RNA sequence: GCGUGCCGAUGAUGAUGCAAAAGCUUAGGUGAAUUCUGGAUGAAUGCGCUUGCGCACCACCAGUGUGCGCAGCUCUGGAUAUCCACUGCGUAAUACUCUGAGGCACAC
Numbered sequence: 001g002c003g004u005g006c007c008g009a010u011g012a013u014g015a016u017g018c019a020a021a022a023g024c025u026u027a028g029g030u031g032a033a034u035u036c037u038g039g040a041u042g043a044a045u046g047c048g049c050u051u052g053c054g055c056a057c058c059a060c061c062a063g064u065g066u067g068c069g070c071a072g073c074u075c076u077g078g079a080u081a082u083c084c085a086c087u088g089c090g091u092a093a094u095a096c097u098c099u100g101a102g103g104c105a106c107a108c
Base pairs, nucleotide, nucleotide: 003106004105005104006103007102
This 108-nucleotide RNA from Triticum aestivum belongs to the Rfam family "Small nucleolar RNA Z188". The source organism's lineage runs through Eukaryota, Tracheophyta, Mesangiospermae, Poales and Triticum. The base pairs follow the family's consensus structure, which was predicted with PFOLD.